Shown here is an 84-nucleotide RNA sequence from Cottoperca gobio, a member of the family "Small nucleolar RNA SNORD60". Lineage of the source: Eukaryota > Eumetazoa > Neopterygii > Osteoglossocephalai > Cottoperca. A search with the family's covariance model found it, with a score of 56 bits. On this family, see Kiss-Laszlo et al., Cell 1996: "Site-specific ribose methylation of preribosomal RNA: a novel function for small nucleolar RNAs".
Nucleotides: 084
Base pairs, nucleotide, nucleotide: 001083002082003081004080048056049055050054
Number, partner (000 for none) and nucleotide at each position: 001083a002082g003081c004080c005000a006000a007000u008000g009000a010000u011000g012000a013000c014000a015000u016000a017000c018000c019000a020000a021000a022000u023000u024000a025000c026000u027000u028000u029000u030000c031000u032000g033000a034000c035000a036000c037000c038000u039000c040000g041000u042000a043000u044000g045000a046000g047000a048056g049055c050054u051000u052000u053000u054050a055049g056048c057000u058000c059000c060000u061000g062000a063000u064000u065000c066000u067000a068000a069000c070000u071000u072000u073000u074000u075000u076000c077000u078000g079000a080004g081003g082002c083001u084000a

The family's consensus secondary structure was predicted with PFOLD.